RNA sequence: CCCUCCGAAGUUUCCCUCAGGAUAGCUGGCGCUCGCUCGAACAAGCAGUUUUAUCCGGUAAAGCGAAUGACUAGAGGCCUUGGGGCCGAAACGAUCUCAACCUAUUCUCAAACUUUAAAUGGGUAAGAAGCCCGGCUCGCUGGCUUGGAGCCUGGGCGUGGAAUGCGAGACGCCUAGUGGGCCACUUUUGGUAAGCAGAACUGGCGCUGCGGGAUGAACCGAACGCCGGGUUAAGGCGCCCGAUGCCGACGCUCAUCAGACCCCAGAAAAGGUGUUGGUUGAUAUAGACAGCAGGACGGUGGCCAUGGAAGUCGGAAUCCGCUAAGGAGUGUGUAACAACUCACCUGCCGAAUCAACUAGCCCUGAAAAUGGAUGGCGCUGGAGCGUCGGGCCCAUACCCGGCCGUCGACGGCAAGAAAAAGUAUGGUCACAGAGAUACGCCUCGACGAGUAGGAGGGCCGCCGCGGUGGCGCGGAAGCCUAGGGCGCGGGCCCGGGUGGAGCCGCCGCGGGUGCAGAU
Numbered sequence: 001c002c003c004u005c006c007g008a009a010g011u012u013u014c015c016c017u018c019a020g021g022a023u024a025g026c027u028g029g030c031g032c033u034c035g036c037u038c039g040a041a042c043a044a045g046c047a048g049u050u051u052u053a054u055c056c057g058g059u060a061a062a063g064c065g066a067a068u069g070a071c072u073a074g075a076g077g078c079c080u081u082g083g084g085g086c087c088g089a090a091a092c093g094a095u096c097u098c099a100a101c102c103u104a105u106u107c108u109c110a111a112a113c114u115u116u117a118a119a120u121g122g123g124u125a126a127g128a129a130g131c132c133c134g135g136c137u138c139g140c141u142g143g144c145u146u147g148g149a150g151c152c153u154g155g156g157c158g159u160g161g162a163a164u165g166c167g168a169g170a171c172g173c174c175u176a177g178u179g180g181g182c183c184a185c186u187u188u189u190g191g192u193a194a195g196c197a198g199a200a201c202u203g204g205c206g207c208u209g210c211g212g213g214a215u216g217a218a219c220c221g222a223a224c225g226c227c228g229g230g231u232u233a234a235g236g237c238g239c240c241c242g243a244u245g246c247c248g249a250c251g252c253u254c255a256u257c258a259g260a261c262c263c264c265a266g267a268a269a270a271g272g273u274g275u276u277g278g279u280u281g282a283u284a285u286a287g288a289c290a291g292c293a294g295g296a297c298g299g300u301g302g303c304c305a306u307g308g309a310a311g312u313c314g315g316a317a318u319c320c321g322c323u324a325a326g327g328a329g330u331g332u333g334u335a336a337c338a339a340c341u342c343a344c345c346u347g348c349c350g351a352a353u354c355a356a357c358u359a360g361c362c363c364u365g366a367a368a369a370u371g372g373a374u375g376g377c378g379c380u381g382g383a384g385c386g387u388c389g390g391g392c393c394c395a396u397a398c399c400c401g402g403c404c405g406u407c408g409a410c411g412g413c414a415a416g417a418a419a420a421a422g423u424a425u426g427g428u429c430a431c432a433g434a435g436a437u438a439c440g441c442c443u444c445g446a447c448g449a450g451u452a453g454g455a456g457g458g459c460c461g462c463c464g465c466g467g468u469g470g471c472g473c474g475g476a477a478g479c480c481u482a483g484g485g486c487g488c489g490g491g492c493c494c495g496g497g498u499g500g501a502g503c504c505g506c507c508g509c510g511g512g513u514g515c516a517g518a519u
Stems, first nucleotide, its partner, number of pairs: 001458006011024001013022003028174004033169001049128008061116001062114002068110003073105001075103003080100006087093001130157004134152005181205004186200005210221003225403005231397001235393003244390001246389001250386003270364003274361010291348005297321003303315002322326001327342001331340002404448006411442003460514001462511010478498002484493003
Source information: The family of this 519-nucleotide part of an RNA from Onychostoma macrolepis is "Eukaryotic large subunit ribosomal RNA". The literature on the family includes a 2001 paper in Science by Yusupov et al., "Crystal structure of the ribosome at 5.5 A resolution". The source organism's lineage runs through Eukaryota, Vertebrata, Teleostomi, Cyprinidae and Onychostoma.